RNA sequence: AUAGCCUCUCCCCUCGCGCGGGGGGGGGGCCUGC
Numbered sequence: 001a002u003a004g005c006c007u008c009u010c011c012c013c014u015c016g017c018g019c020g021g022g023g024g025g026g027g028g029g030c031c032u033g034c
Base pairs, nucleotide, nucleotide: 005029006028007027008026009025010024011022012021
Shown here is a 34-nucleotide sequence from Betacarmovirus brassicae, a member of the family "Turnip crinkle virus (TCV) core promoter hairpin (Pr)". Rfam links the family to the GO term positive regulation of RNA biosynthetic process. The literature on the family includes a 2004 paper in J Virol by McCormack and Simon, "Biased hypermutagenesis associated with mutations in an untranslated hairpin of an RNA virus". By type it is a cis-regulatory element. Rfam's curators write: This family represents the turnip crinkle virus (TCV) core promoter hairpin (Pr). Pr is located in the 3' UTR and is required for minus strand RNA synthesis. Taxonomically the source falls in Betacarmovirus brassicae (Viruses, Orthornavirae, Tolucaviricetes, Procedovirinae). The base pairs follow the family's consensus structure, which is taken from published work.